[Rfam]
RNA: c-di-GMP-I riboswitch aptamer
RNA sequence: CUCGAAUAAAGGCAAACCGGGCGAAAGCCUGAGGACGCAAAGCUACAGGGGCUUAGACGCUUAGAACGAAGCGUGAUGCCAGCCAGUUUCCGAA
Numbered sequence: 001c002u003c004g005a006a007u008a009a010a011g012g013c014a015a016a017c018c019g020g021g022c023g024a025a026a027g028c029c030u031g032a033g034g035a036c037g038c039a040a041a042g043c044u045a046c047a048g049g050g051g052c053u054u055a056g057a058c059g060c061u062u063a064g065a066a067c068g069a070a071g072c073g074u075g076a077u078g079c080c081a082g083c084c085a086g087u088u089u090c091c092g093a094a
Stems, first nucleotide, its partner, number of pairs: 012038002017033001018031005041088004048084002050080003057074006
Dot-bracket structure: ...........((...((((((....))))).)...))..((((...(((((....((((((......))))))...)))..))))))......